[Rfam]
RNA sequence: CUCGGUCCUCGGUGGUGGAUCCCGGGCACGUCCCGGCGUCCUCGAUCGAAGACCGGU
Numbered sequence: 001c002u003c004g005g006u007c008c009u010c011g012g013u014g015g016u017g018g019a020u021c022c023c024g025g026g027c028a029c030g031u032c033c034c035g036g037c038g039u040c041c042u043c044g045a046u047c048g049a050a051g052a053c054c055g056g057u
Stems, first nucleotide, its partner, number of pairs: 002056006009049005017041004022036005
Background:
This 57-nucleotide RNA from Propionibacterium australiense belongs to the Rfam family "Actino-pnp RNA". It scores 55 bits against the family's covariance model. Pairs were carried over by alignment from the consensus structure, which is taken from published work. The source organism's lineage runs through Bacteria, Bacillati, Actinomycetes, Propionibacteriales and Propionibacterium.